[Rfam]
RNA sequence: CGUACGAAACGGCAAAACUAUUGAAAAAUGGUGACGCAAAACUAUAGGGGCUAAUGUUAAUGUUAUAGAACGAUGCCAGCCAGUUACCGAA
Numbered sequence: 001c002g003u004a005c006g007a008a009a010c011g012g013c014a015a016a017a018c019u020a021u022u023g024a025a026a027a028a029u030g031g032u033g034a035c036g037c038a039a040a041a042c043u044a045u046a047g048g049g050g051c052u053a054a055u056g057u058u059a060a061u062g063u064u065a066u067a068g069a070a071c072g073a074u075g076c077c078a079g080c081c082a083g084u085u086a087c088c089g090a091a
Stems, first nucleotide, its partner, number of pairs: 012037002017032006040085004047081002049077003056071003
RNA: c-di-GMP-I riboswitch aptamer